[Rfam]
This 152-nucleotide RNA from Bifidobacterium leontopitheci belongs to the Rfam family "FMN riboswitch aptamer (RFN element)". It scores 85 bits against the family's covariance model. The organism belongs to Bifidobacterium, within Bacteria.
RNA sequence: GGCAAGUUUCAGGGAAGGUGCAAUUCCUUACUGGCGGUAACGGCACGACCGGCACACAACGGUCCGUCAGCCGAAGCCCGCGACCCGCGACAGCGGCUGAUCCGGUGGGAUUCCGGAGCCAACGGUAACAGUCCGGAUGAAAGAAACGGAGC
Numbered sequence: 001g002g003c004a005a006g007u008u009u010c011a012g013g014g015a016a017g018g019u020g021c022a023a024u025u026c027c028u029u030a031c032u033g034g035c036g037g038u039a040a041c042g043g044c045a046c047g048a049c050c051g052g053c054a055c056a057c058a059a060c061g062g063u064c065c066g067u068c069a070g071c072c073g074a075a076g077c078c079c080g081c082g083a084c085c086c087g088c089g090a091c092a093g094c095g096g097c098u099g100a101u102c103c104g105g106u107g108g109g110a111u112u113c114c115g116g117a118g119c120c121a122a123c124g125g126u127a128a129c130a131g132u133c134c135g136g137a138u139g140a141a142a143g144a145a146a147c148g149g150a151g152c
Stems, first nucleotide, its partner, number of pairs: 006147005016028003030132002032121002034081004085096002101117005123135003
Dot-bracket structure: .....(((((.....(((.......))).[[((((((........................................))))...((........))....(((((.......)))))..)).(((.....]]))).......))))).....